[Rfam]
RNA sequence: UGGAAGUGAUGAAAUAGAGAUAAUUGGAUGUGUCUUUGAAUGAGUGUGUGUGUUAAAUGGAAUUUAAACCAAGCGGGGUGGGGUGUGGGGAGUGUGUGUGUGUGUGCACAGAUAGAGGAGGCUUCAAAUGGGGGCACUGACAAUGCUGUGCUGAUUCCGGAGUGCAUCUGAGGCAUGUUGUUAAAUUCUGGGGUGCCACAUUGCAACAUUGCCGAUGAUUAAAGCCCAAAAGAAGCCCACCAGGAGAAGCCUGGGCAUCCUAAAUCUCUAACAGGUUCAUUACUGAAAGUGAUCCUGUGAUCUGAUCUGA
Numbered sequence: 001u002g003g004a005a006g007u008g009a010u011g012a013a014a015u016a017g018a019g020a021u022a023a024u025u026g027g028a029u030g031u032g033u034c035u036u037u038g039a040a041u042g043a044g045u046g047u048g049u050g051u052g053u054u055a056a057a058u059g060g061a062a063u064u065u066a067a068a069c070c071a072a073g074c075g076g077g078g079u080g081g082g083g084u085g086u087g088g089g090g091a092g093u094g095u096g097u098g099u100g101u102g103u104g105u106g107c108a109c110a111g112a113u114a115g116a117g118g119a120g121g122c123u124u125c126a127a128a129u130g131g132g133g134g135c136a137c138u139g140a141c142a143a144u145g146c147u148g149u150g151c152u153g154a155u156u157c158c159g160g161a162g163u164g165c166a167u168c169u170g171a172g173g174c175a176u177g178u179u180g181u182u183a184a185a186u187u188c189u190g191g192g193g194u195g196c197c198a199c200a201u202u203g204c205a206a207c208a209u210u211g212c213c214g215a216u217g218a219u220u221a222a223a224g225c226c227c228a229a230a231a232g233a234a235g236c237c238c239a240c241c242a243g244g245a246g247a248a249g250c251c252u253g254g255g256c257a258u259c260c261u262a263a264a265u266c267u268c269u270a271a272c273a274g275g276u277u278c279a280u281u282a283c284u285g286a287a288a289g290u291g292a293u294c295c296u297g298u299g300a301u302c303u304g305a306u307c308u309g310a
Stems, first nucleotide, its partner, number of pairs: 001309004176208006183201001186195001188193001

Shown here is a 310-nucleotide RNA from Nycticryphes semicollaris, a member of the family "Small Cajal body-specific RNA 7". A search with the family's covariance model found it, with a score of 174 bits. The organism belongs to Nycticryphes, within Eukaryota. For this family Rfam cites "Cajal body-specific small nuclear RNAs: a novel class of 2'-O-methylation and pseudouridylation guide RNAs" (Darzacq et al., EMBO J, 2002). Its family is annotated with nucleolus and RNA processing in the Gene Ontology.